Source information
Rfam assigns this 96-nucleotide sequence from Williamsoniiplasma somnilux to the family "Purine riboswitch aptamer". It scores 56 bits against the family's covariance model. A reference for the family is Mandal et al. (2003), "Riboswitches Control Fundamental Biochemical Pathways in Bacillus subtilis and Other Bacteria", Cell. Rfam describes the family as follows. Riboswitches are metabolite binding domains within certain messenger RNAs that serve as precision sensors for their corresponding targets. The base pairs follow the family's consensus structure, which is taken from published work.
[Rfam]
RNA sequence: AGUAAUUAAAUAAAGAAAACUUAUAUAAUCCUCCAUAUUGGGGAGGAGUCUCUACCUAACACCUUAUGUUAGAUUAUGGGUUGUUUAACUAGCAUU
Numbered sequence: 001a002g003u004a005a006u007u008a009a010a011u012a013a014a015g016a017a018a019a020c021u022u023a024u025a026u027a028a029u030c031c032u033c034c035a036u037a038u039u040g041g042g043g044a045g046g047a048g049u050c051u052c053u054a055c056c057u058a059a060c061a062c063c064u065u066a067u068g069u070u071a072g073a074u075u076a077u078g079g080g081u082u083g084u085u086u087a088a089c090u091a092g093c094a095u096u
Stems, first nucleotide, its partner, number of pairs: 018082008029047006056072006